Rfam assigns this 68-nucleotide RNA sequence from Leptotrombidium deliense to the family "mir-71 microRNA precursor family". It scores 68 bits against the family's covariance model. The literature on the family includes a 2008 paper in PLoS One by Yu et al., "The silkworm (Bombyx mori) microRNAs and their expressions in multiple developmental stages". The source organism's lineage runs through Eukaryota, Acari, Acariformes, Trombidiformes and Leptotrombidium.
RNA sequence: UUUGAGUGAAAGACAUGGGUAGUGAGAUGUGCAAAUGGUCAUCUCACUACCUUGUCUUUGACGGAAAU
Numbered sequence: 001u002u003u004g005a006g007u008g009a010a011a012g013a014c015a016u017g018g019g020u021a022g023u024g025a026g027a028u029g030u031g032c033a034a035a036u037g038g039u040c041a042u043c044u045c046a047c048u049a050c051c052u053u054g055u056c057u058u059u060g061a062c063g064g065a066a067a068u
Stems, first nucleotide, its partner, number of pairs: 009059007017052003021048009